[Rfam]
RNA sequence: UACGAUAACGGCAAACCUAUCGAAAGAUAGGGACGCAAAGCUAAAGGGCCUUCCCGACAGGAUGGCAGCCAGCUACCGAAA
Numbered sequence: 001u002a003c004g005a006u007a008a009c010g011g012c013a014a015a016c017c018u019a020u021c022g023a024a025a026g027a028u029a030g031g032g033a034c035g036c037a038a039a040g041c042u043a044a045a046g047g048g049c050c051u052u053c054c055c056g057a058c059a060g061g062a063u064g065g066c067a068g069c070c071a072g073c074u075a076c077c078g079a080a081a
Base pairs, nucleotide, nucleotide: 001081003078004077011036012035016031017030018029019028020027021026034068039074040073041072042071046070047069048066049065050064

Rfam assigns this 81-nucleotide RNA from Paenibacillus monticola to the family "c-di-GMP-I-GGC riboswitch aptamer".
Gene Ontology term of the family: cyclic-di-GMP binding.
The organism belongs to Paenibacillus, within Bacteria.
The family's consensus secondary structure is taken from published work.